[Rfam]
RNA: mir-3492 microRNA precursor family
RNA sequence: AGCCUUCUGUAUCCGUGCUGAGAUUUCGUCACACACCAGACCACAAGGGCUGAUGAGACUUACCGAAAUUUGCAACA
Numbered sequence: 001a002g003c004c005u006u007c008u009g010u011a012u013c014c015g016u017g018c019u020g021a022g023a024u025u026u027c028g029u030c031a032c033a034c035a036c037c038a039g040a041c042c043a044c045a046a047g048g049g050c051u052g053a054u055g056a057g058a059c060u061u062a063c064c065g066a067a068a069u070u071u072g073c074a075a076c077a
Stems, first nucleotide, its partner, number of pairs: 005075002008072002011069002017063001019062004024058007